[Rfam]
A member of the RNA family "c-di-GMP-I riboswitch aptamer" from Halanaerobium saccharolyticum, 85 nucleotides long. The family's consensus secondary structure is taken from published work. Lineage of the source: Bacteria > Halanaerobiales > Halanaerobium > Halanaerobium saccharolyticum > Halanaerobium saccharolyticum subsp. saccharolyticum. Rfam's curators write: GEMM was predicted in a large-scale screen for bacterial structured RNA regulatory elements.
RNA sequence: UGAAAACAAAGGCACAAUAAUUGAAAGAUUAUUACGCAAAGAUCUGAGUCUAAGGAUUUAAUCUAUGACUGUCAGAUUUGCCUCA
Numbered sequence: 001u002g003a004a005a006a007c008a009a010a011g012g013c014a015c016a017a018u019a020a021u022u023g024a025a026a027g028a029u030u031a032u033u034a035c036g037c038a039a040a041g042a043u044c045u046g047a048g049u050c051u052a053a054g055g056a057u058u059u060a061a062u063c064u065a066u067g068a069c070u071g072u073c074a075g076a077u078u079u080g081c082c083u084c085a
Stems, first nucleotide, its partner, number of pairs: 012037002017032006040079004045074003048069003055063003